[Rfam]
RNA: c-di-AMP riboswitch aptamer (ydaO/yuaA leader)
Organism: Paenibacillus sp. GP183
RNA sequence: GAGAAAAAAUUGCCGAAUCCACAAGCAGCAAAGGCUUGGGUACGGGGGAUGCUUUAUUGGGGUGAAUGAUCGUAAUCCGCUAAGGAGAAGCGAACUAGGGAAAUCCUCUUCCCGAACCCGUCAACUAACCUCGGAGGCUCAUAGGAGGCAGGUU
Numbered sequence: 001g002a003g004a005a006a007a008a009a010u011u012g013c014c015g016a017a018u019c020c021a022c023a024a025g026c027a028g029c030a031a032a033g034g035c036u037u038g039g040g041u042a043c044g045g046g047g048g049a050u051g052c053u054u055u056a057u058u059g060g061g062g063u064g065a066a067u068g069a070u071c072g073u074a075a076u077c078c079g080c081u082a083a084g085g086a087g088a089a090g091c092g093a094a095c096u097a098g099g100g101a102a103a104u105c106c107u108c109u110u111c112c113c114g115a116a117c118c119c120g121u122c123a124a125c126u127a128a129c130c131u132c133g134g135a136g137g138c139u140c141a142u143a144g145g146a147g148g149c150a151g152g153u154u
Base pairs, nucleotide, nucleotide: 012138013137014136019040020039043133044132045131046130047129052059060119061118062117068095070093071092072091073090098113099112100111101110